[Rfam]
RNA sequence: GCAUUCUAAAACAACGGAAGCCCUACCUCUCUUCCGUCCUUACGGCUCCGAAGACCGCGCCAGUGUGAAUCAGAAUCUCUCCAGGCUA
Numbered sequence: 001g002c003a004u005u006c007u008a009a010a011a012c013a014a015c016g017g018a019a020g021c022c023c024u025a026c027c028u029c030u031c032u033u034c035c036g037u038c039c040u041u042a043c044g045g046c047u048c049c050g051a052a053g054a055c056c057g058c059g060c061c062a063g064u065g066u067g068a069a070u071c072a073g074a075a076u077c078u079c080u081c082c083a084g085g086c087u088a
Stems, first nucleotide, its partner, number of pairs: 035067002039063002041059001043057003047053001
RNA: BsrC